[Rfam]
RNA sequence: CCGUGCUAAACGGGGCGAUAGCGGUGCCUUGUAACCCGCAAUCCGCUGUAGCGGGGUUGAAGCUUUUCUAGAGGGCCUGUCUUGUGGGGACUGGCCUCUGUAAGUGGUGUAGACGGUUGGGUCCUACGCAACGGAAACCUAUGAACCCCGCCAGGUCCGGAAGGAAGCAACGGUAAGUAGGCCAUUUCGGGUGCCGUAGGGUAGCCUGGCCCGAGCUAACUGCAGAGGUAACGCCUGGAAGGCAGUGUUCGAAGAAAGCGCACGG
Numbered sequence: 001c002c003g004u005g006c007u008a009a010a011c012g013g014g015g016c017g018a019u020a021g022c023g024g025u026g027c028c029u030u031g032u033a034a035c036c037c038g039c040a041a042u043c044c045g046c047u048g049u050a051g052c053g054g055g056g057u058u059g060a061a062g063c064u065u066u067u068c069u070a071g072a073g074g075g076c077c078u079g080u081c082u083u084g085u086g087g088g089g090a091c092u093g094g095c096c097u098c099u100g101u102a103a104g105u106g107g108u109g110u111a112g113a114c115g116g117u118u119g120g121g122u123c124c125u126a127c128g129c130a131a132c133g134g135a136a137a138c139c140u141a142u143g144a145a146c147c148c149c150g151c152c153a154g155g156u157c158c159g160g161a162a163g164g165a166a167g168c169a170a171c172g173g174u175a176a177g178u179a180g181g182c183c184a185u186u187u188c189g190g191g192u193g194c195c196g197u198a199g200g201g202u203a204g205c206c207u208g209g210c211c212c213g214a215g216c217u218a219a220c221u222g223c224a225g226a227g228g229u230a231a232c233g234c235c236u237g238g239a240a241g242g243c244a245g246u247g248u249u250c251g252a253a254g255a256a257a258g259c260g261c262a263c264g265g
Stems, first nucleotide, its partner, number of pairs: 001265006009058003012030006019023001035055005064258006073250004079243005085237004092230002096227006104220002106217003115211008123200006129191001132189005138181005148173003156165003
Notes: This 265-nucleotide sequence from Heliorestis acidaminivorans belongs to the Rfam family "Bacterial large signal recognition particle RNA". Clan: SRP clan. For this family Rfam cites "SRPDB: Signal Recognition Particle Database" (Rosenblad et al., Nucleic Acids Res, 2003). The family's RNA type in Rfam is non-coding RNA gene.